RNA sequence: CUUUCUUAGAGAAACGCAAAAGGCGAAAGGAG
Numbered sequence: 001c002u003u004u005c006u007u008a009g010a011g012a013a014a015c016g017c018a019a020a021a022g023g024c025g026a027a028a029g030g031a032g
Stems, first nucleotide, its partner, number of pairs: 001023004006019002
Shown here is a 32-nucleotide RNA, a member of the family "L31-Firmicutes ribosomal protein leader". Clan: Ribosomal Protein L31 Leader clan. On this family, see Eckert and Weinberg, BMC Microbiol 2020: "Discovery of 20 novel ribosomal leader candidates in bacteria and archaea". It is one of the family's seed sequences. The family's consensus secondary structure is taken from published work.